c-di-GMP-I riboswitch aptamer: an 86-nucleotide sequence from Propionigenium maris. It scores 78 bits against the family's covariance model. Rfam describes the family as follows. GEMM was predicted in a large-scale screen for bacterial structured RNA regulatory elements.

RNA sequence: UUCUGAAAAAGGCAAAGCAGGGGAAACCCUGUGACGCAAAGCUAGAGGGUCUAAGUCCACCUAGGAUAUGACAGCCAGUUGCCACA
Numbered sequence: 001u002u003c004u005g006a007a008a009a010a011g012g013c014a015a016a017g018c019a020g021g022g023g024a025a026a027c028c029c030u031g032u033g034a035c036g037c038a039a040a041g042c043u044a045g046a047g048g049g050u051c052u053a054a055g056u057c058c059a060c061c062u063a064g065g066a067u068a069u070g071a072c073a074g075c076c077a078g079u080u081g082c083c084a085c086a
Stems, first nucleotide, its partner, number of pairs: 012037002017032006040080004047076002049072003056066003

The source organism's lineage runs through Bacteria, Fusobacteriati, Fusobacteriales, Fusobacteriaceae and Propionigenium maris.